The family of this 305-nucleotide RNA from Nitrosomonas mobilis is "Bacterial RNase P class A".
[Rfam]
RNA sequence: GAAGCUGGCUAGACAGUCGCUGCCUGGCAACCCAGGGAGAGGAAAGUCCGGGCUCCGCAGAGCAGGAUGCCGGUUAAUGGCCGGCCGCUAUAAGUCGUAAGACCCAAGGCGAGGAACAGGGCCACAGAGACGAGCGUAUUAAGUUACGGUGAAACGCGGUAACCUCCAUCCGGAGCAAGACCAAAUAGGCAGACGAUGACGCUGCUCGCCGAGUCUGCGGGUAGGUUGCUUGAGCGAGUAGGUAACUAUUCGCCUAGAGGAAUGACUGUCCACGACAGAACCCGGCUUAUCGGCCAGCUUCACUU
Dot-bracket structure: ((((((((((((((((((.((.(((((....))))).))....[[[.[[[[[((((...[[[[.((((((((((.....)))))(((((..................)))).)((...(((((...........((((......)))).........)))..)))))))))))))...((((......((((((......((.]]]]))...)))))).....))))......((((((((....))))))))..........)))))))..........]]]]]]]].).))))))))))....
The family's RNA type in Rfam is ribozyme. Gene Ontology terms of the family: tRNA processing, dimeric ribonuclease P complex and ribonuclease P activity. Rfam's curators write: Ribonuclease P (RNase P) is a ubiquitous endoribonuclease, found in archaea, bacteria and eukarya as well as chloroplasts and mitochondria.